[Rfam]
RNA: Group I catalytic intron
RNA sequence: ACGCCGGGAGUAACUCUGACUCUCUUAAGGUAAAACAAAAAAUUUGGAUUGCCUUAGUAAAAUCUGGCUAUUUGCUGGAAAGUCUGAGAAUGUCAAACUAGUUUUCAAAAAUAAAAUUUUGAAAAUCUGAAAAUGUUUUGACUGCAGACAAUCAGCAGGAAAGACUAGAUUUCAAAGUUUGAAAUUUAGAAUCCUCAGAGACUACAUGCCAGAAGUCGUUUAACAAAAAAUGAUUAAGAUAUAGUCCGACCCUUGCAGCGAUGCAAGG
Numbered sequence: 001a002c003g004c005c006g007g008g009a010g011u012a013a014c015u016c017u018g019a020c021u022c023u024c025u026u027a028a029g030g031u032a033a034a035a036c037a038a039a040a041a042a043u044u045u046g047g048a049u050u051g052c053c054u055u056a057g058u059a060a061a062a063u064c065u066g067g068c069u070a071u072u073u074g075c076u077g078g079a080a081a082g083u084c085u086g087a088g089a090a091u092g093u094c095a096a097a098c099u100a101g102u103u104u105u106c107a108a109a110a111a112u113a114a115a116a117u118u119u120u121g122a123a124a125a126u127c128u129g130a131a132a133a134u135g136u137u138u139u140g141a142c143u144g145c146a147g148a149c150a151a152u153c154a155g156c157a158g159g160a161a162a163g164a165c166u167a168g169a170u171u172u173c174a175a176a177g178u179u180u181g182a183a184a185u186u187u188a189g190a191a192u193c194c195u196c197a198g199a200g201a202c203u204a205c206a207u208g209c210c211a212g213a214a215g216u217c218g219u220u221u222a223a224c225a226a227a228a229a230a231u232g233a234u235u236a237a238g239a240u241a242u243a244g245u246c247c248g249a250c251c252c253u254u255g256c257a258g259c260g261a262u263g264c265a266a267g268g
Base pairs, nucleotide, nucleotide: 006024007023008022009021010020011019013017030036063213064212065211066210068208073157074156075155076154077153078152083148084147085146086145158194159193171182172181174179198247200246201245202244203243204242216233217232218231219230220229221228253266254265255264256263257262